[Rfam]
RNA: Small nucleolar RNA SNORD45
RNA sequence: GGUCAGUGAUGAGCCCGGCAUGUAUUGCCUGAGCCCCCUGAUGCCAAACCUCAGCUCUAGAAUUACUCUGAGACCCG
Numbered sequence: 001g002g003u004c005a006g007u008g009a010u011g012a013g014c015c016c017g018g019c020a021u022g023u024a025u026u027g028c029c030u031g032a033g034c035c036c037c038c039u040g041a042u043g044c045c046a047a048a049c050c051u052c053a054g055c056u057c058u059a060g061a062a063u064u065a066c067u068c069u070g071a072g073a074c075c076c077g
Base pairs, nucleotide, nucleotide: 001075002074003073004072